[Rfam]
RNA sequence: UCCCUCCCUGGAAGGGGUGAUGUGUCAGCACAGCCCAGAUAAGGACUCUGACUCUGUGUGAUGAAACUUGCGGAGUGCUCUGACCUUCCAUAAGUGAGG
Numbered sequence: 001u002c003c004c005u006c007c008c009u010g011g012a013a014g015g016g017g018u019g020a021u022g023u024g025u026c027a028g029c030a031c032a033g034c035c036c037a038g039a040u041a042a043g044g045a046c047u048c049u050g051a052c053u054c055u056g057u058g059u060g061a062u063g064a065a066a067c068u069u070g071c072g073g074a075g076u077g078c079u080c081u082g083a084c085c086u087u088c089c090a091u092a093a094g095u096g097a098g099g
Stems, first nucleotide, its partner, number of pairs: 009090007
This 99-nucleotide RNA from Thryothorus ludovicianus belongs to the Rfam family "Small nucleolar RNA SNORD124". A search with the family's covariance model found it, with a score of 42 bits. Rfam 15.1 lists 191 matches to the family in 183 species. A reference for the family is Yang et al. (2006), "snoSeeker: an advanced computational package for screening of guide and orphan snoRNA genes in the human genome", Nucleic Acids Res.